[Rfam]
RNA: Plastid-psbA-3 3UTR RNA
RNA sequence: AAAGGCGCAAUAACGCCCUCUUGAUAGAACAAGAAAGGUUUUAUUGCUCCUUUUUUU
Numbered sequence: 001a002a003a004g005g006c007g008c009a010a011u012a013a014c015g016c017c018c019u020c021u022u023g024a025u026a027g028a029a030c031a032a033g034a035a036a037g038g039u040u041u042u043a044u045u046g047c048u049c050c051u052u053u054u055u056u057u
Base pairs, nucleotide, nucleotide: 001053002052003051004050005049007047008046009045010044011043012042013041019034020033021032022031023030